[Rfam]
RNA sequence: ACCCGCUCUAGCUUUUUGGCUAAGAUCAAGUGUAGUAUCUGUUCUUAUUAUUCUAAUCGAAUAAUAUGGUGGCCACGGCCACCAAUCGAUUAAUUUCAUUUUUGAACCGCGCUGGUCAAGCUCUGGCUUGCUAUCUUGACCGGCACUGGUGUCCUCGGUAUUGCACUACCUCCGAGUUGUACGCCGAACUCUU
Numbered sequence: 001a002c003c004c005g006c007u008c009u010a011g012c013u014u015u016u017u018g019g020c021u022a023a024g025a026u027c028a029a030g031u032g033u034a035g036u037a038u039c040u041g042u043u044c045u046u047a048u049u050a051u052u053c054u055a056a057u058c059g060a061a062u063a064a065u066a067u068g069g070u071g072g073c074c075a076c077g078g079c080c081a082c083c084a085a086u087c088g089a090u091u092a093a094u095u096u097c098a099u100u101u102u103u104g105a106a107c108c109g110c111g112c113u114g115g116u117c118a119a120g121c122u123c124u125g126g127c128u129u130g131c132u133a134u135c136u137u138g139a140c141c142g143g144c145a146c147u148g149g150u151g152u153c154c155u156c157g158g159u160a161u162u163g164c165a166c167u168a169c170c171u172c173c174g175a176g177u178u179g180u181a182c183g184c185c186g187a188a189c190u191c192u193u
Base pairs, nucleotide, nucleotide: 007025008024009023010021011020012019013018046066047065048064049063050062051061068083069082070081071080072079073078111144112143113142114141115140116139117138118137124133125132126131147186148185149184150183151182152181154176155175156174157173158172
RNA: U2 spliceosomal RNA
Organism: Linnemannia gamsii